Cyano-1 RNA: a 77-nucleotide RNA from Amazonocrinis nigriterrae.
The match comes from Rfam's covariance-model search (55 bits).
Taxonomically the source falls in Amazonocrinis nigriterrae (Bacteria, Bacillati, Cyanophyceae, Nostocaceae).

RNA sequence: AAUUGUGUGAGGAGUAGGGUUAAAAGUAGAAAGCGUCUGAAGUGGAAACAAGGCAACACUUCCAGGCGCUUUUUAAU
Numbered sequence: 001a002a003u004u005g006u007g008u009g010a011g012g013a014g015u016a017g018g019g020u021u022a023a024a025a026g027u028a029g030a031a032a033g034c035g036u037c038u039g040a041a042g043u044g045g046a047a048a049c050a051a052g053g054c055a056a057c058a059c060u061u062c063c064a065g066g067c068g069c070u071u072u073u074u075a076a077u
Stems, first nucleotide, its partner, number of pairs: 030072005037065003041061001042059003